[Rfam]
RNA sequence: CCGGCGAAUGCCGGUGGAACUACAGGACGUCGUGGUUGCGGGUUCGACUCCCGCCGGCUCUCCGGGGCCGUAGCUCAAUCGGAUAGAGCGCGAUGCCGUUUCACCCGACUUGUCGCCGUUUU
Numbered sequence: 001c002c003g004g005c006g007a008a009u010g011c012c013g014g015u016g017g018a019a020c021u022a023c024a025g026g027a028c029g030u031c032g033u034g035g036u037u038g039c040g041g042g043u044u045c046g047a048c049u050c051c052c053g054c055c056g057g058c059u060c061u062c063c064g065g066g067g068c069c070g071u072a073g074c075u076c077a078a079u080c081g082g083a084u085a086g087a088g089c090g091c092g093a094u095g096c097c098g099u100u101u102c103a104c105c106c107g108a109c110u111u112g113u114c115g116c117c118g119u120u121u122u
Stems, first nucleotide, its partner, number of pairs: 002118006013105007031092003038054005055070006073089004
RNA: Y RNA-like
Organism: Pseudomonas sp. FeS53a